RNA sequence: UUCUUAUCCAGAGAGGCAGAGGGACUGGCCCUAUGAAGCCCGGCAACCGGUUGUGAAACACGGUGCUAAUUCCAGCAGAGUGAUUGCUCUGUAAAGAUAAGGA
Numbered sequence: 001u002u003c004u005u006a007u008c009c010a011g012a013g014a015g016g017c018a019g020a021g022g023g024a025c026u027g028g029c030c031c032u033a034u035g036a037a038g039c040c041c042g043g044c045a046a047c048c049g050g051u052u053g054u055g056a057a058a059c060a061c062g063g064u065g066c067u068a069a070u071u072c073c074a075g076c077a078g079a080g081u082g083a084u085u086g087c088u089c090u091g092u093a094a095a096g097a098u099a100a101g102g103a
Base pairs, nucleotide, nucleotide: 001103002102003101004100005099006098007097008096013041015040016039017038021031022030023029025075026074027073028072042067043066044065045064047063048062049059051057052056071095076091077090078089079088080087081086